[Rfam]
RNA: small nucleolar RNA snoR135
RNA sequence: AAAGCAGUGAUUGUGUGUAUCGACUAAGUGCCUGAAUCAAUGCUCUUAUCGUCGAAAGUGUUUACUGCAAUAUUUAUUUGGGGAAGGUGGGCAGUUGAGUUUCAUUUUUCUAAUUGAUUUGUCAACAAUCAUUUUCCCCACAUCU
Numbered sequence: 001a002a003a004g005c006a007g008u009g010a011u012u013g014u015g016u017g018u019a020u021c022g023a024c025u026a027a028g029u030g031c032c033u034g035a036a037u038c039a040a041u042g043c044u045c046u047u048a049u050c051g052u053c054g055a056a057a058g059u060g061u062u063u064a065c066u067g068c069a070a071u072a073u074u075u076a077u078u079u080g081g082g083g084a085a086g087g088u089g090g091g092c093a094g095u096u097g098a099g100u101u102u103c104a105u106u107u108u109u110c111u112a113a114u115u116g117a118u119u120u121g122u123c124a125a126c127a128a129u130c131a132u133u134u135u136c137c138c139c140a141c142a143u144c145u
Stems, first nucleotide, its partner, number of pairs: 004068007015045001017043004080139011094126004